[Rfam]
RNA sequence: AGUUCGAUGCAGGGGUGCCCAUCGCGCGAAAAACGCGCAAUCGGCUGAGAGGGCGCAAGCCUAACCCUUUGAACCUGUCAGUUAGUGCUGGCGUAGGGAGCAUCUCAGGUUCUAUC
Numbered sequence: 001a002g003u004u005c006g007a008u009g010c011a012g013g014g015g016u017g018c019c020c021a022u023c024g025c026g027c028g029a030a031a032a033a034c035g036c037g038c039a040a041u042c043g044g045c046u047g048a049g050a051g052g053g054c055g056c057a058a059g060c061c062u063a064a065c066c067c068u069u070u071g072a073a074c075c076u077g078u079c080a081g082u083u084a085g086u087g088c089u090g091g092c093g094u095a096g097g098g099a100g101c102a103u104c105u106c107a108g109g110u111u112c113u114a115u116c
Stems, first nucleotide, its partner, number of pairs: 006104005011068004017045003021041001052061003074097004078091004
RNA: TPP riboswitch aptamer (THI element)
Organism: Ellagibacter isourolithinifaciens